[Rfam]
Potassium channel RNA editing signal: a 121-nucleotide RNA sequence from Aedes aegypti. Rfam classes the family as a cis-regulatory element. Rfam's curators write: This family represents a group of sequences related to the human potassium channel Kv1.1 hairpin element which directs the efficient modification of an adenosine to inosine by an adenosine deaminase acting on RNA (ADAR). The ADAR modification causes an isoleucine/valine recoding event which lies in the ion-conducting pore of the potassium channel. It is thought that this editing event targets the process of fast inactivation and allows a more rapid recovery from inactivation at negative potentials. A reference for the family is Bhalla et al. (2004), "Control of human potassium channel inactivation by editing of a small mRNA hairpin", Nat Struct Mol Biol. Rfam links the family to the GO term adenosine to inosine editing. Pairs were carried over by alignment from the consensus structure, which is taken from published work.
RNA sequence: AUUGCAUUGACGGCACCGUCUCAACAGGCCGGUCGGAGUGUGGGGUAAGAUCGUUGGGUCCUUGUGCGCGAUUGCCGGUGUACUUACGAUUGCCCUGCCGGUACCGGUCAUCGUCAGCAAC
Numbered sequence: 001a002u003u004g005c006a007u008u009g010a011c012g013g014c015a016c017c018g019u020c021u022c023a024a025c026a027g028g029c030c031g032g033u034c035g036g037a038g039u040g041u042g043g044g045g046u047a048a049g050a051u052c053g054u055u056g057g058g059u060c061c062u063u064g065u066g067c068g069c070g071a072u073u074g075c076c077g078g079u080g081u082a083c084u085u086a087c088g089a090u091u092g093c094c095c096u097g098c099c100g101g102u103a104c105c106g107g108u109c110a111u112c113g114u115c116a117g118c119a120a121c
Stems, first nucleotide, its partner, number of pairs: 002120001004118002009115005015108003018104002024102002044084004057069001
Dot-bracket structure: .(.((...(((((.(((((....((..................((((.........(...........)...........))))................)))).)))..))))).)).).